Rfam assigns this 398-nucleotide RNA sequence from Spirosoma agri to the family "Bacterial RNase P class A". A search with the family's covariance model found it, with a score of 255 bits. Lineage of the source: Bacteria > Pseudomonadati > Cytophagia > Cytophagales > Spirosoma.
RNA sequence: AAUACGAGUUGGCUUAUCGCGUCUGAGCAAUCAGGCGAGGAAAGUCCGGGCAGCGCAGAGCACCCUACUUCCUAACGGGAAGGAGAACGGUUGGGAACGACCGUUCGACAGCUAGUGUCACAGAAAAUAUACCGCCGAAAGGUAAGGGUGAAAAGGUAAGGUAAGAGCUUACCGCCCGCUGGGUGAUCAGCGGGGCAGGAUAAACCUUAGGGGCUGAAAGACCAAAUAAGCGUCGGACGUGGGGCGGCUCGUUCCCGUUCGGGCGUAAGCCCGAUGCCGACGCGGGUAGGUCGAACGAGGUGGCCGGUGACGACCAUCCCAGAUAAAUGAUAAGCCAUCUGACUCAGCCACAAGCCUACGUCAGUGGACAGAACCCGGCUUAUAGGCUCGUAUUGCCC
Numbered sequence: 001a002a003u004a005c006g007a008g009u010u011g012g013c014u015u016a017u018c019g020c021g022u023c024u025g026a027g028c029a030a031u032c033a034g035g036c037g038a039g040g041a042a043a044g045u046c047c048g049g050g051c052a053g054c055g056c057a058g059a060g061c062a063c064c065c066u067a068c069u070u071c072c073u074a075a076c077g078g079g080a081a082g083g084a085g086a087a088c089g090g091u092u093g094g095g096a097a098c099g100a101c102c103g104u105u106c107g108a109c110a111g112c113u114a115g116u117g118u119c120a121c122a123g124a125a126a127a128u129a130u131a132c133c134g135c136c137g138a139a140a141g142g143u144a145a146g147g148g149u150g151a152a153a154a155g156g157u158a159a160g161g162u163a164a165g166a167g168c169u170u171a172c173c174g175c176c177c178g179c180u181g182g183g184u185g186a187u188c189a190g191c192g193g194g195g196c197a198g199g200a201u202a203a204a205c206c207u208u209a210g211g212g213g214c215u216g217a218a219a220g221a222c223c224a225a226a227u228a229a230g231c232g233u234c235g236g237a238c239g240u241g242g243g244g245c246g247g248c249u250c251g252u253u254c255c256c257g258u259u260c261g262g263g264c265g266u267a268a269g270c271c272c273g274a275u276g277c278c279g280a281c282g283c284g285g286g287u288a289g290g291u292c293g294a295a296c297g298a299g300g301u302g303g304c305c306g307g308u309g310a311c312g313a314c315c316a317u318c319c320c321a322g323a324u325a326a327a328u329g330a331u332a333a334g335c336c337a338u339c340u341g342a343c344u345c346a347g348c349c350a351c352a353a354g355c356c357u358a359c360g361u362c363a364g365u366g367g368a369c370a371g372a373a374c375c376c377g378g379c380u381u382a383u384a385g386g387c388u389c390g391u392a393u394u395g396c397c398c
Base pairs, nucleotide, nucleotide: 001394002393003392004391005390006389007388008387009386010385011383012335013334014333015332016331017330018329020037021036022035023034024033025032026031042381043380044379046378047377048376049375050374051216052215053214054213058272060270061269063212064211065210066209067208068082069081070080071079072078083109085106086105087104088103089102090101091100092099093098110207111206115205116204117201118200119199132147133146134143135142136141155173156172157171158170159169160168174196175194176193177192178191179190180189181188182187220292221291222290223289230283231282232281233280234279235278263277264276265275266274299318300317301316302315303314305312306311